[Rfam]
RNA sequence: CACCCGGGACUUGUUCGGGACUCGCCCGGGACUUGGAGGGUCAAGUCCCGGGCAGGUCCCGAACAAGUCCCGGGCG
Numbered sequence: 001c002a003c004c005c006g007g008g009a010c011u012u013g014u015u016c017g018g019g020a021c022u023c024g025c026c027c028g029g030g031a032c033u034u035g036g037a038g039g040g041u042c043a044a045g046u047c048c049c050g051g052g053c054a055g056g057u058c059c060c061g062a063a064c065a066a067g068u069c070c071c072g073g074g075c076g
Base pairs, nucleotide, nucleotide: 001076003074004073005072006071007070008069009068011066012065016061017060018059019058020057021056022055024053025052026051027050028049029048030047032045033044034043035042036041